[Rfam]
RNA sequence: GUAGGUUAUGGAGAUAUUUACCCAAAAACGUUGCUGGGAAAGAUAGUUGGAGGUUUGUGUUGUAUUGCAGGUGUGCUGGUCAUAGCCUUACCCAUCCCCAUCAUUGUGAAUAAC
Number, nucleotide and partner (000 for none) at each position: 001g114002u113003a000004g111005g000006u000007u108008a107009u106010g105011g104012a000013g102014a101015u100016a000017u000018u000019u000020a095021c000022c000023c000024a000025a000026a000027a000028a000029c000030g000031u000032u000033g000034c000035u000036g000037g077038g076039a000040a074041a000042g000043a000044u000045a000046g000047u000048u000049g063050g000051a061052g000053g000054u000055u000056u000057g000058u000059g000060u000061u051062g000063u049064a000065u000066u000067g000068c000069a000070g000071g000072u000073g000074u040075g000076c038077u037078g000079g000080u000081c000082a000083u000084a000085g000086c000087c000088u000089u000090a000091c000092c000093c000094a000095u020096c000097c000098c000099c000100a015101u014102c013103a000104u011105u010106g009107u008108g007109a000110a000111u004112a000113a002114c001
The record is a 114-nucleotide RNA sequence from Nothobranchius furzeri, which matches "Potassium channel RNA editing signal" in Rfam. Rfam classes the family as a cis-regulatory element.